[Rfam]
RNA sequence: GGUAGUAGCAAAUAUUCAAGUGAGAACCUUGAAGACUGAAGUGGAGAAAGGUUCCAUGGUAACAGCAGUUGGACAUGGGUUAGUCGAUCCUAAGAGAUAGGGAAGCUCCGUUUCAAAGUGUCUUAUUCUUAAGGCCGCCUAUCGAAAGGGAAUCCGGUUAAAAUUCCGGAACCAGGAUGUGGAUCUUUAACGGCAACGUAACUGAACUUGGAGACAUUGGCGAGGGCCCCGGGAAGAGUUAUCUUUUCUCCUUAACAGUCUACAACCCUGAAAUCAGUUUGUCUGGAGCUAGGGUUCAAUGGCUGGUAGAGCGCGACAACUCUGUCGCGUCCGGUGCGUUCUCGACAAUCCUUGAAAAUCCAAGGGAAUGAAUAAUUUUCACACCUGGUCGUACUCAUAACCGCAGCAGGUCUCCAAGGUGAACAGCCUCUAGUUGA
Numbered sequence: 001g002g003u004a005g006u007a008g009c010a011a012a013u014a015u016u017c018a019a020g021u022g023a024g025a026a027c028c029u030u031g032a033a034g035a036c037u038g039a040a041g042u043g044g045a046g047a048a049a050g051g052u053u054c055c056a057u058g059g060u061a062a063c064a065g066c067a068g069u070u071g072g073a074c075a076u077g078g079g080u081u082a083g084u085c086g087a088u089c090c091u092a093a094g095a096g097a098u099a100g101g102g103a104a105g106c107u108c109c110g111u112u113u114c115a116a117a118g119u120g121u122c123u124u125a126u127u128c129u130u131a132a133g134g135c136c137g138c139c140u141a142u143c144g145a146a147a148g149g150g151a152a153u154c155c156g157g158u159u160a161a162a163a164u165u166c167c168g169g170a171a172c173c174a175g176g177a178u179g180u181g182g183a184u185c186u187u188u189a190a191c192g193g194c195a196a197c198g199u200a201a202c203u204g205a206a207c208u209u210g211g212a213g214a215c216a217u218u219g220g221c222g223a224g225g226g227c228c229c230c231g232g233g234a235a236g237a238g239u240u241a242u243c244u245u246u247u248c249u250c251c252u253u254a255a256c257a258g259u260c261u262a263c264a265a266c267c268c269u270g271a272a273a274u275c276a277g278u279u280u281g282u283c284u285g286g287a288g289c290u291a292g293g294g295u296u297c298a299a300u301g302g303c304u305g306g307u308a309g310a311g312c313g314c315g316a317c318a319a320c321u322c323u324g325u326c327g328c329g330u331c332c333g334g335u336g337c338g339u340u341c342u343c344g345a346c347a348a349u350c351c352u353u354g355a356a357a358a359u360c361c362a363a364g365g366g367a368a369u370g371a372a373u374a375a376u377u378u379u380c381a382c383a384c385c386u387g388g389u390c391g392u393a394c395u396c397a398u399a400a401c402c403g404c405a406g407c408a409g410g411u412c413u414c415c416a417a418g419g420u421g422a423a424c425a426g427c428c429u430c431u432a433g434u435u436g437a
Base pairs, nucleotide, nucleotide: 015033016032017031018030019029020028034435035434036433037432043415044414045413046412049395050394054078055077056076057075058074063071064070085391086390087389089149090148094143095142096112097111098110100109101108102107120135121134122133153170154169155168156167157166173387174386175385176384178383179382180381181380182379183377190199191198192197207364208363209362210361211360212359216349217348218347219346221344222343223342224341225340226339227338229334230333231332232252233251235249236248237247256305257304258303259302260301265295266294267293268292269291270290274286275285276284277283312329313328314327315326316325317324318323401410402409417429418428419427420426

This 437-nucleotide part of an RNA from Mycena chlorophos belongs to the Rfam family "Eukaryotic large subunit ribosomal RNA". The base pairs follow the family's consensus structure, which is taken from published work. NCBI's taxonomy places the organism under Eukaryota, Agaricomycetes, Marasmiineae, Mycenaceae, Mycena. It scores 3246 bits against the family's covariance model.